RNA sequence: GUGCAUAAAACGCCGAAUUCCUUGCACCGGGAAGUGGGGGAACCAUAUUUUGGGUGAAUUGAUCUCGUAAGAGAGGGAUCAUAGGGGACCUUCUACCGAAUCCUUAAGCUAACCUCGCAGGCCUUGGAAGGAGUACAU
Numbered sequence: 001g002u003g004c005a006u007a008a009a010a011c012g013c014c015g016a017a018u019u020c021c022u023u024g025c026a027c028c029g030g031g032a033a034g035u036g037g038g039g040g041a042a043c044c045a046u047a048u049u050u051u052g053g054g055u056g057a058a059u060u061g062a063u064c065u066c067g068u069a070a071g072a073g074a075g076g077g078a079u080c081a082u083a084g085g086g087g088a089c090c091u092u093c094u095a096c097c098g099a100a101u102c103c104u105u106a107a108g109c110u111a112a113c114c115u116c117g118c119a120g121g122c123c124u125u126g127g128a129a130g131g132a133g134u135a136c137a138u
Stems, first nucleotide, its partner, number of pairs: 012122003018033005034118006045050001052103003060081007084097002
RNA: c-di-AMP riboswitch aptamer (ydaO/yuaA leader)
Organism: Paenibacillus agri